The family of this 74-nucleotide RNA sequence is "tRNA".
RNA sequence: GCCGAAAUAGCUCAGUUGGGAGAGCGUUAGACUGAAGAUCUAAAAGGUCCCUGGUUCGAUCCCGGGUUUCGGCA
Numbered sequence: 001g002c003c004g005a006a007a008u009a010g011c012u013c014a015g016u017u018g019g020g021a022g023a024g025c026g027u028u029a030g031a032c033u034g035a036a037g038a039u040c041u042a043a044a045a046g047g048u049c050c051c052u053g054g055u056u057c058g059a060u061c062c063c064g065g066g067u068u069u070c071g072g073c074a
Base pairs, nucleotide, nucleotide: 001073002072003071004070005069006068007067010025011024012023013022027043028042029041030040031039050066051065052064053063054062

About this RNA
The family's consensus secondary structure is taken from published work.